[Rfam]
RNA sequence: GUUCACACAUAUCGGAGUUUACUUUUAUCACUGCUCGGCAGAAGCGGGGGAACCAAAUUUUGGUUCCAACUUUAGGUUGAGAACCUAGGGGUUAAGUCAUCUUCACCGAUGACCGAGUGACUUCCUACUCGAACCCGACAGCUCACCUCGUUCGGCACUGGAGGAAAACUA
Numbered sequence: 001g002u003u004c005a006c007a008c009a010u011a012u013c014g015g016a017g018u019u020u021a022c023u024u025u026u027a028u029c030a031c032u033g034c035u036c037g038g039c040a041g042a043a044g045c046g047g048g049g050g051a052a053c054c055a056a057a058u059u060u061u062g063g064u065u066c067c068a069a070c071u072u073u074a075g076g077u078u079g080a081g082a083a084c085c086u087a088g089g090g091g092u093u094a095a096g097u098c099a100u101c102u103u104c105a106c107c108g109a110u111g112a113c114c115g116a117g118u119g120a121c122u123u124c125c126u127a128c129u130c131g132a133a134c135c136c137g138a139c140a141g142c143u144c145a146c147c148u149c150g151u152u153c154g155g156c157a158c159u160g161g162a163g164g165a166a167a168a169c170u171a
Stems, first nucleotide, its partner, number of pairs: 012155003018043003044151006054088001089136003097112004115130004